[Rfam]
RNA sequence: UAUGGCAAUGAUGAUGAAAGAUAAGGCUUGUUUCUCAACAUUCGCAGUAGCCGCCUAAGAGCUUUCGCCACGCCAGGCUCGAGAGCUUGUGCUGUUGAAUCCUUCCUUGGAUGUCUGAGCCAUA
Numbered sequence: 001u002a003u004g005g006c007a008a009u010g011a012u013g014a015u016g017a018a019a020g021a022u023a024a025g026g027c028u029u030g031u032u033u034c035u036c037a038a039c040a041u042u043c044g045c046a047g048u049a050g051c052c053g054c055c056u057a058a059g060a061g062c063u064u065u066c067g068c069c070a071c072g073c074c075a076g077g078c079u080c081g082a083g084a085g086c087u088u089g090u091g092c093u094g095u096u097g098a099a100u101c102c103u104u105c106c107u108u109g110g111a112u113g114u115c116u117g118a119g120c121c122a123u124a
Base pairs, nucleotide, nucleotide: 003122004121005120006119061086062085063084064083065082066081